A member of the RNA family "mraW RNA" from Nesterenkonia sedimenti, 109 nucleotides long. The match comes from Rfam's covariance-model search (54 bits). It is annotated as a cis-regulatory element. NCBI's taxonomy places the organism under Bacteria, Actinomycetota, Actinomycetes, Micrococcales, Nesterenkonia. The base pairs follow the family's consensus structure, which is taken from published work.
[Rfam]
RNA sequence: UAGGGGCCCUUUGGUAAGCCUCCUUACCGUUGCGGACCAACCUGACUUCUCUUCCCCGAUGUCAGGCUGGACCCAACGGUGGGGGAGCCGGCUGAAGGGCCUCAUUCAU
Numbered sequence: 001u002a003g004g005g006g007c008c009c010u011u012u013g014g015u016a017a018g019c020c021u022c023c024u025u026a027c028c029g030u031u032g033c034g035g036a037c038c039a040a041c042c043u044g045a046c047u048u049c050u051c052u053u054c055c056c057c058g059a060u061g062u063c064a065g066g067c068u069g070g071a072c073c074c075a076a077c078g079g080u081g082g083g084g085g086a087g088c089c090g091g092c093u094g095a096a097g098g099g100c101c102u103c104a105u106u107c108a109u
Stems, first nucleotide, its partner, number of pairs: 010096006018088002021085012034073002037070003041066006048059001